[Rfam]
RNA: MIR8675 microRNA precursor family
RNA sequence: UGUGGUACUUUGAGAUUAUGUCACAUCAUCACUUGAAAAUUAAAAAAAUUAUAUAAAUUUUCAAGUGAUGUUGUGGUACAAUCUAAGAGUGUCAC
Numbered sequence: 001u002g003u004g005g006u007a008c009u010u011u012g013a014g015a016u017u018a019u020g021u022c023a024c025a026u027c028a029u030c031a032c033u034u035g036a037a038a039a040u041u042a043a044a045a046a047a048a049u050u051a052u053a054u055a056a057a058u059u060u061u062c063a064a065g066u067g068a069u070g071u072u073g074u075g076g077u078a079c080a081a082u083c084u085a086a087g088a089g090u091g092u093c094a095c
Stems, first nucleotide, its partner, number of pairs: 003094007013084005019078007027070015